[Rfam]
RNA sequence: CCUCUUCCAUCAACCACGGAUCUGUGCCCAGCGGUCCUCUGCUUUUCUUCGUGGAGUCAGGGUCGACUGCUGUGCAGCUCGAUAACAGCAUGGAGCCAUCAACUUGUUAUGGUGUCAAUCAUCCUAUCGACAGGUCCAAGAAGGACUCGGUCUUUAGCUCCCUCGUGGGUCGUCGCAAGACGGCUUGCGAGUUGCGGCCUCUGACUGGAGGCACUAUAAUCCAACCCUCUUUUCCGAGACCGUCGGUCCGUGAGGUUGGGGAAAACCAUGGUAGCCUACAUUU
Numbered sequence: 001c002c003u004c005u006u007c008c009a010u011c012a013a014c015c016a017c018g019g020a021u022c023u024g025u026g027c028c029c030a031g032c033g034g035u036c037c038u039c040u041g042c043u044u045u046u047c048u049u050c051g052u053g054g055a056g057u058c059a060g061g062g063u064c065g066a067c068u069g070c071u072g073u074g075c076a077g078c079u080c081g082a083u084a085a086c087a088g089c090a091u092g093g094a095g096c097c098a099u100c101a102a103c104u105u106g107u108u109a110u111g112g113u114g115u116c117a118a119u120c121a122u123c124c125u126a127u128c129g130a131c132a133g134g135u136c137c138a139a140g141a142a143g144g145a146c147u148c149g150g151u152c153u154u155u156a157g158c159u160c161c162c163u164c165g166u167g168g169g170u171c172g173u174c175g176c177a178a179g180a181c182g183g184c185u186u187g188c189g190a191g192u193u194g195c196g197g198c199c200u201c202u203g204a205c206u207g208g209a210g211g212c213a214c215u216a217u218a219a220u221c222c223a224a225c226c227c228u229c230u231u232u233u234c235c236g237a238g239a240c241c242g243u244c245g246g247u248c249c250g251u252g253a254g255g256u257u258g259g260g261g262a263a264a265a266c267c268a269u270g271g272u273a274g275c276c277u278a279c280a281u282u283u
Base pairs, nucleotide, nucleotide: 018137019136020135021134022133023132024131025130026075027074029072030071031070033068034067035066036065037062038061039060040059041058042056043055044053083129085127087125091117092116093115095113096112097111150205151204152203162189164187167186168185169184170183171182172181173180174179210276211275212274213272214271215270216269217268226261227260228259229258234255235254238248239247240246241245
A. fumigatus sRNA Afu_309: a 283-nucleotide sequence from Tolypocladium ophioglossoides. It is annotated as a small RNA. The family has 10 seed sequences and 663 matches in Rfam 15.1. On this family, see Jochl et al., Nucleic Acids Res 2008: "Small ncRNA transcriptome analysis from Aspergillus fumigatus suggests a novel mechanism for regulation of protein synthesis". Taxonomically the source falls in Tolypocladium ophioglossoides (Eukaryota, Ascomycota, Pezizomycotina, Sordariomycetes).